[Rfam]
RNA: EcpR1
Organism: Phreatobacter aquaticus
RNA sequence: AAACCCUGUGGAGUGCUCAGGUCCGCCGCAACUUUCCUGGGUCCACGGGGUCGGCCGGUCGAGUUCGGCACGGAUGGCCUCUCCGUAAUGCCGCAGGCUCGACCGGCCACCCG
Numbered sequence: 001a002a003a004c005c006c007u008g009u010g011g012a013g014u015g016c017u018c019a020g021g022u023c024c025g026c027c028g029c030a031a032c033u034u035u036c037c038u039g040g041g042u043c044c045a046c047g048g049g050g051u052c053g054g055c056c057g058g059u060c061g062a063g064u065u066c067g068g069c070a071c072g073g074a075u076g077g078c079c080u081c082u083c084c085g086u087a088a089u090g091c092c093g094c095a096g097g098c099u100c101g102a103c104c105g106g107c108c109a110c111c112c113g
Base pairs, nucleotide, nucleotide: 003051004050005049006048007047008046009045010044016041017040018039019038020037021036053108054107055106056105057104058103059102060101061100062099063098